[Rfam]
RNA sequence: CAGUGCAGUCAUCCAUAAAGUAGAAAGCACUACUAACCAUCCAAUCAGUGUAGUGUUUCCUACUUUAUGGACGAGUGCACUGU
Numbered sequence: 001c002a003g004u005g006c007a008g009u010c011a012u013c014c015a016u017a018a019a020g021u022a023g024a025a026a027g028c029a030c031u032a033c034u035a036a037c038c039a040u041c042c043a044a045u046c047a048g049u050g051u052a053g054u055g056u057u058u059c060c061u062a063c064u065u066u067a068u069g070g071a072c073g074a075g076u077g078c079a080c081u082g083u
Base pairs, nucleotide, nucleotide: 014069015068016067017066018065019064020063021062022061023060026057027056028055029054030053031052032051033050
RNA: mir-142 microRNA precursor family